[Rfam]
RNA sequence: UCAUAUUUCAGGUUUGUCCGUGAAUCUGACAUUUCAAUACCUUCUUCAUGCUUCUCAUAUCAGAGAAGUUGAUCUCUUUAAGGGUUUUGUUAAUUGUUAGAUUCACGCACAAACUCGCAAUUUGUCU
Numbered sequence: 001u002c003a004u005a006u007u008u009c010a011g012g013u014u015u016g017u018c019c020g021u022g023a024a025u026c027u028g029a030c031a032u033u034u035c036a037a038u039a040c041c042u043u044c045u046u047c048a049u050g051c052u053u054c055u056c057a058u059a060u061c062a063g064a065g066a067a068g069u070u071g072a073u074c075u076c077u078u079u080a081a082g083g084g085u086u087u088u089g090u091u092a093a094u095u096g097u098u099a100g101a102u103u104c105a106c107g108c109a110c111a112a113a114c115u116c117g118c119a120a121u122u123u124g125u126c127u
Stems, first nucleotide, its partner, number of pairs: 002124002005121003011115007019107008028098003033093001042084001044082003
Dot-bracket structure: .((.(((...(((((((.((((((((.(((..(........(.(((.................................))).)........)..))).)))))))).)))))))...))).))...
Record summary
MIR403 microRNA precursor family: a 127-nucleotide sequence from Chenopodium quinoa. For this family Rfam cites "High throughput approaches reveal splicing of primary microRNA transcripts and tissue specific expression of mature microRNAs in Vitis vinifera" (Mica et al., BMC Genomics, 2009). The organism belongs to Chenopodium, within Eukaryota.